[Rfam]
RNA sequence: UUGCCUUAGAAACCAAGUGUGGGUGUGGCCUGGGUGUUUUUCUUUGGCGACCCAUCCUUGGUUUCUGAGGCUU
Dot-bracket structure: ..(((((.((((((.((...((((...(((...............))).))))...)).)))))).)))))..
The record is a 73-nucleotide RNA sequence from Triplophysa rosa, which matches "mir-551 microRNA precursor family" in Rfam. Gene Ontology terms of the family: RISC complex and miRNA-mediated post-transcriptional gene silencing. The literature on the family includes a 2008 paper in Genome Res by Murchison et al., "Conservation of small RNA pathways in platypus".